[Rfam]
RNA: Mammalian CPEB3 ribozyme
Organism: Laticauda laticaudata
RNA sequence: ACAGCAUAGUAGGUGGCCAUAGAAGGAGCGUUCACGUCGCGGCCCCUGUCAGGUAUCUGUUUACCUGCGAAUCCUUCU
Number, nucleotide and partner (000 for none) at each position: 001a000002c000003a000004g000005c000006a000007u000008a000009g000010u000011a000012g000013g046014u000015g044016g043017c042018c041019a000020u000021a078022g077023a076024a075025g074026g073027a072028g040029c039030g038031u000032u000033c000034a000035c000036g000037u000038c030039g029040c028041g018042g017043c016044c015045c000046c013047u000048g000049u000050c067051a066052g065053g064054u063055a062056u000057c000058u000059g000060u000061u000062u055063a054064c053065c052066u051067g050068c000069g000070a000071a000072u027073c026074c025075u024076u023077c022078u021